This 69-nucleotide RNA from Chinchilla lanigera belongs to the Rfam family "Small nucleolar RNA SNORD113/SNORD114 family". Rfam describes the family as follows. The imprinted human domain at 14q32 contains two clusters of tandemly repeated small nucleolar RNAs named 14q(I) and 14q(II) snoRNAs. These two clusters are named SNORD113 and SNORD114 respectively in the HGNC approved gene symbol nomenclature. The snoRNAs found in both clusters are clearly related and are represented here by a single family. These snoRNAs are intron encoded and are processed from the tissue-specific non-coding human MEG8 RNA, which lies downstream of the imprinted genes DLK1 and GTL2. snoRNAs 14q(I) and 14q(II) differ from previously identified C/D box snoRNAs in their expression profiles and lack of complementarity to rRNA and snRNA. Homologues of these snoRNAs are found in the imprinted non-coding mouse transcript Rian, and in the rat non-coding Bsr (brain-specific repetitive) RNA. Lineage of the source: Eukaryota > Opisthokonta > Theria > Boreoeutheria > Chinchilla. For this family Rfam cites "Identification of tandemly-repeated C/D snoRNA genes at the imprinted human 14q32 domain reminiscent of those at the Prader-Willi/Angelman syndrome region" (Cavaille et al., Hum Mol Genet, 2002). Rfam classes the family as a C/D-box small nucleolar RNA. Clan: SNORD74 clan.

RNA sequence: UGGAGUAGUGAUGACUUUUGGUGGCAUAUGAGUAAAGGAUGAAUGUGUGUCUGGAGCUCAGAGUUCAUC
Number, nucleotide and partner (000 for none) at each position: 001u000002g000003g066004a065005g064006u063007a000008g000009u000010g000011a000012u000013g000014a000015c000016u000017u000018u000019u000020g000021g000022u000023g000024g000025c000026a000027u000028a000029u000030g000031a000032g000033u000034a000035a000036a000037g000038g000039a000040u000041g000042a000043a000044u000045g000046u000047g000048u000049g000050u000051c000052u000053g000054g000055a000056g000057c000058u000059c000060a000061g000062a000063g006064u005065u004066c003067a000068u000069c000